[Rfam]
RNA sequence: CUGCGGUGAUGUGGAUGAAUUCUCUCUUCCUGACUGAUCGUGGAGAAAAUCCUUUACCAGAUUCUGAGCAGC
Numbered sequence: 001c002u003g004c005g006g007u008g009a010u011g012u013g014g015a016u017g018a019a020u021u022c023u024c025u026c027u028u029c030c031u032g033a034c035u036g037a038u039c040g041u042g043g044a045g046a047a048a049a050u051c052c053u054u055u056a057c058c059a060g061a062u063u064c065u066g067a068g069c070a071g072c
Stems, first nucleotide, its partner, number of pairs: 001071004
Small nucleolar RNA SNORD26: a 72-nucleotide sequence from Lepisosteus oculatus. By type it is a C/D-box small nucleolar RNA. It scores 46 bits against the family's covariance model. Gene Ontology terms of the family: nucleolus and RNA processing.